A member of the RNA family "Group II catalytic intron D1-D4-3" from Salinimicrobium marinum, 173 nucleotides long. It scores 151 bits against the family's covariance model.

[Rfam]
RNA sequence: UCCAUCGCGAGGUGGAAUCUGAAGGAAGCCUAAGACAAAUUCCCGGCCUGACGAACAGAAACUGCAUACAAGGCCUAUGAGGGUUGGAUGAGCUUGCAAUACAAAGCAAAGUCCAACACUGUCCGGAACCCUUGGGGUAAAAGCGGCAGGUAUAUGGGAGGAAAGUUAUUGCU
Numbered sequence: 001u002c003c004a005u006c007g008c009g010a011g012g013u014g015g016a017a018u019c020u021g022a023a024g025g026a027a028g029c030c031u032a033a034g035a036c037a038a039a040u041u042c043c044c045g046g047c048c049u050g051a052c053g054a055a056c057a058g059a060a061a062c063u064g065c066a067u068a069c070a071a072g073g074c075c076u077a078u079g080a081g082g083g084u085u086g087g088a089u090g091a092g093c094u095u096g097c098a099a100u101a102c103a104a105a106g107c108a109a110a111g112u113c114c115a116a117c118a119c120u121g122u123c124c125g126g127a128a129c130c131c132u133u134g135g136g137g138u139a140a141a142a143g144c145g146g147c148a149g150g151u152a153u154a155u156g157g158g159a160g161g162a163a164a165g166u167u168a169u170u171g172c173u
Stems, first nucleotide, its partner, number of pairs: 001016006028173001030171001032169001035166002040160006046151005062146004067141001073138003079133006086114004092107004